[Rfam]
RNA sequence: GACCAUAUCAUUAUCAUUCCAGGGACUUUUUACAAGACCCAAGGAACAUUUUUUGGAGCCCAGUUCACUAGAACCUGGGUU
Numbered sequence: 001g002a003c004c005a006u007a008u009c010a011u012u013a014u015c016a017u018u019c020c021a022g023g024g025a026c027u028u029u030u031u032a033c034a035a036g037a038c039c040c041a042a043g044g045a046a047c048a049u050u051u052u053u054u055g056g057a058g059c060c061c062a063g064u065u066c067a068c069u070a071g072a073a074c075c076u077g078g079g080u081u
Stems, first nucleotide, its partner, number of pairs: 022040003026036003058080006064073003
This 81-nucleotide sequence from Steinernema carpocapsae belongs to the Rfam family "SmY spliceosomal RNA". The match comes from Rfam's covariance-model search (48 bits). Rfam 15.1 lists 408 matches to the family in 67 species. The literature on the family includes a 1996 paper in RNA by Maroney et al., "Direct analysis of nematode cis- and trans-spliceosomes: a functional role for U5 snRNA in spliced leader addition trans-splicing and the identification of novel Sm snRNPs". Pairs were carried over by alignment from the consensus structure, which is taken from published work. It is annotated as a spliceosomal small nuclear RNA.